The record is a 138-nucleotide RNA sequence from Himantopus himantopus, which matches "Small nucleolar RNA SNORA15" in Rfam.
A search with the family's covariance model found it, with a score of 71 bits.
On this family, see Huttenhofer et al., EMBO J 2001: "RNomics: an experimental approach that identifies 201 candidates for novel, small, non-messenger RNAs in mouse".
ACA15 is a member of the H/ACA class of snoRNA that guide the sites of modification of uridines to pseudouridines.

RNA sequence: GCAUGGAUGAAUUCUGCACUAGCUUUCCACAGUAGCUAAUGCAGUCAGACACUAUGCCAGAAUAAAUUCCGUUUUCACACUGCGAUUGGUAUGCUUUUUAUCUGAGAAUGGGCAUGCCCUUGGAAGUGGGAUACAUGA
Number, nucleotide and partner (000 for none) at each position: 001g057002c056003a055004u054005g053006g052007a000008u000009g000010a000011a000012u000013u000014c044015u043016g042017c041018a040019c000020u000021a000022g000023c000024u000025u000026u000027c000028c000029a000030c000031a000032g000033u000034a000035g000036c000037u000038a000039a000040u018041g017042c016043a015044g014045u000046c000047a000048g000049a000050c000051a000052c006053u005054a004055u003056g002057c001058c000059a000060g000061a000062a000063u000064a000065a000066a000067u000068u131069c130070c129071g127072u126073u125074u124075u123076c122077a121078c000079a000080c000081u000082g000083c000084g000085a000086u000087u000088g118089g117090u116091a115092u114093g113094c112095u111096u110097u000098u000099u000100a000101u000102c000103u000104g000105a000106g000107a000108a000109u000110g096111g095112g094113c093114a092115u091116g090117c089118c088119c000120u000121u077122g076123g075124a074125a073126g072127u071128g000129g070130g069131a068132u000133a000134c000135a000136u000137g000138a000
Rfam 15.1 lists 974 matches to the family in 624 species.